RNA sequence: AGAACGUGAUGAGUUGCUUUUUGGUCCGUGUUUCUGACCUCACGCUGAUGUGUAGUAAAGCUCUCUGAUUCU
Numbered sequence: 001a002g003a004a005c006g007u008g009a010u011g012a013g014u015u016g017c018u019u020u021u022u023g024g025u026c027c028g029u030g031u032u033u034c035u036g037a038c039c040u041c042a043c044g045c046u047g048a049u050g051u052g053u054a055g056u057a058a059a060g061c062u063c064u065c066u067g068a069u070u071c072u
Base pairs, nucleotide, nucleotide: 001072002071003070004069
Small nucleolar RNA SNORD18: a 72-nucleotide RNA sequence from Ceratopteris richardii. Pairs were carried over by alignment from the consensus structure, which was predicted with PFOLD. On this family, see Giorgi et al., EMBO J 2001: "Release of U18 snoRNA from its host intron requires interaction of Nop1p with the Rnt1p endonuclease". NCBI's taxonomy places the organism under Eukaryota, Euphyllophyta, Polypodiidae, Parkerioideae, Ceratopteris. Rfam links the family to the GO terms RNA processing and nucleolus. Rfam 15.1 lists 2,622 matches to the family in 960 species.